[Rfam]
RNA: glmS glucosamine-6-phosphate activated ribozyme aptamer
Organism: Levilinea saccharolytica
RNA sequence: AAGAAAAAAAUAGCGCAUGACCUGUUCUGGGGUGGGGCAAGGAACAGGUGACGAGGAAGAGGGUUCCCUGCCGCGGGGCAGGGCUAACCGGCAAUCGCCGGGAAAAUCGAAAGAUCAGCGGAAGCCCUCCGGAUUUUGUCCGAACUUUCCCUCCAUCCAAAACCAAAAAACGAGUGGAUUUCGAUCC
Numbered sequence: 001a002a003g004a005a006a007a008a009a010a011u012a013g014c015g016c017a018u019g020a021c022c023u024g025u026u027c028u029g030g031g032g033u034g035g036g037g038c039a040a041g042g043a044a045c046a047g048g049u050g051a052c053g054a055g056g057a058a059g060a061g062g063g064u065u066c067c068c069u070g071c072c073g074c075g076g077g078g079c080a081g082g083g084c085u086a087a088c089c090g091g092c093a094a095u096c097g098c099c100g101g102g103a104a105a106a107u108c109g110a111a112a113g114a115u116c117a118g119c120g121g122a123a124g125c126c127c128u129c130c131g132g133a134u135u136u137u138g139u140c141c142g143a144a145c146u147u148u149c150c151c152u153c154c155a156u157c158c159a160a161a162a163c164c165a166a167a168a169a170a171c172g173a174g175u176g177g178a179u180u181u182c183g184a185u186c187c
Base pairs, nucleotide, nucleotide: 020049021048022047023046024045025044026043027042028040059129060128061127062126063125068118069117070116130142131141132140133139147178148177149176151174152173153172
Dot-bracket structure: ...................(((((((((...........).)))))))).........(((((....(((.............................................)))......)))))((((.....))))....(((.(((..................))).))).........